[Rfam]
Overview
The family of this 161-nucleotide RNA sequence from Anaerotignum neopropionicum is "ZMP/ZTP riboswitch aptamer (pfl RNA motif)". Lineage of the source: Bacteria > Bacillati > Bacillota > Anaerotignaceae > Anaerotignum.
RNA sequence: GGGGCUUUUUAUAACUGACGGAUCAGUGGGAGACCACAGGGGAGUAGAAAGCUUGAAUGUAAGCAGUUUAAGAGUUAAGCGGUGUUUUUUACACUGCGCCUGAUAAAGAGGAAUCAGUCAGGAGUUUAACACUGCUUUUGUCGACCGUCUGGGCAGUCCUG
Numbered sequence: 001g002g003g004g005c006u007u008u009u010u011a012u013a014a015c016u017g018a019c020g021g022a023u024c025a026g027u028g029g030g031a032g033a034c035c036a037c038a039g040g041g042g043a044g045u046a047g048a049a050a051g052c053u054u055g056a057a058u059g060u061a062a063g064c065a066g067u068u069u070a071a072g073a074g075u076u077a078a079g080c081g082g083u084g085u086u087u088u089u090u091a092c093a094c095u096g097c098g099c100c101u102g103a104u105a106a107a108g109a110g111g112a113a114u115c116a117g118u119c120a121g122g123a124g125u126u127u128a129a130c131a132c133u134g135c136u137u138u139u140g141u142c143g144a145c146c147g148u149c150u151g152g153g154c155a156g157u158c159c160u161g
Stems, first nucleotide, its partner, number of pairs: 003053010015041002017149005026037004138156005
Dot-bracket structure: ..((((((((((..(([[[[[....((((....))))..))..))))))))))....................................................................................(((((..]]]]]..))))).....